[Rfam]
RNA: Bacterial small signal recognition particle RNA
Organism: Eubacterium pyruvativorans
RNA sequence: GUCUGGGUCCUGCGCAAUAGGAUGCCGUGAACCUUGUCAGGUCCGGAAGGAAGCAGCAAUAAGCGGAAGUUUCUAUGUGCCGCAGAUCAGCCUUUUCCUA
Numbered sequence: 001g002u003c004u005g006g007g008u009c010c011u012g013c014g015c016a017a018u019a020g021g022a023u024g025c026c027g028u029g030a031a032c033c034u035u036g037u038c039a040g041g042u043c044c045g046g047a048a049g050g051a052a053g054c055a056g057c058a059a060u061a062a063g064c065g066g067a068a069g070u071u072u073c074u075a076u077g078u079g080c081c082g083c084a085g086a087u088c089a090g091c092c093u094u095u096u097c098c099u100a
Stems, first nucleotide, its partner, number of pairs: 005093004010085005015077001017076006023068001025066004034059004042051003